The family of this 126-nucleotide RNA from Tetradesmus obliquus is "Small nucleolar RNA SNORD14". It scores 65 bits against the family's covariance model. About the family: U14 small nucleolar RNA (U14 snoRNA) is required for early cleavages of eukaryotic precursor rRNAs. In yeasts, this molecule possess a stem-loop region (known as the Y-domain) which is essential for function. A similar structure, but with a different consensus sequence, is found in plants, but is absent in vertebrates. Rfam classes the family as a C/D-box small nucleolar RNA. Rfam links the family to the GO terms nucleolus and RNA processing. The organism belongs to Tetradesmus, within Eukaryota. A reference for the family is Samarsky et al. (1996), "An essential domain in Saccharomyces cerevisiae U14 snoRNA is absent in vertebrates, but conserved in other yeasts", Nucleic Acids Res.
RNA sequence: UGCCAGUGAUGAAGAUUCCAAAUUGGGCUUUUCUCAGAAAAACAUUCGCAGGGCCCGUCUAGAGCUUUCGCCUUCGCCGGGCUUGAGAGCUGUUGCGGUUGAUACCUUCCUUGGAUGUCUGAGGCA
Numbered sequence: 001u002g003c004c005a006g007u008g009a010u011g012a013a014g015a016u017u018c019c020a021a022a023u024u025g026g027g028c029u030u031u032u033c034u035c036a037g038a039a040a041a042a043c044a045u046u047c048g049c050a051g052g053g054c055c056c057g058u059c060u061a062g063a064g065c066u067u068u069c070g071c072c073u074u075c076g077c078c079g080g081g082c083u084u085g086a087g088a089g090c091u092g093u094u095g096c097g098g099u100u101g102a103u104a105c106c107u108u109c110c111u112u113g114g115a116u117g118u119c120u121g122a123g124g125c126a
Stems, first nucleotide, its partner, number of pairs: 001126004064090006